Molybdenum/Tungsten riboswitch aptamer (Moco RNA motif): a 133-nucleotide sequence from Shewanella frigidimarina.

[Rfam]
RNA sequence: GAUCUGACGGUUCUCCGAGCUUUUUGCCCUACGUCAAUGAUAUGGGCAGUUAGCCGUGGUAAUUUUGCCACCGGGGUGAGUAAAGAAAUGCACUCACCUCCCACACUUGGAAAGGUUAACAUGUCCCAACUAC
Dot-bracket structure: .....(....((..((..(((..((((((...(((...)))..))))))..))).(((((......)))))..((((((((..(....)..))))))))((.......))...))..))....).........

Record summary:
The base pairs follow the family's consensus structure, which is taken from published work.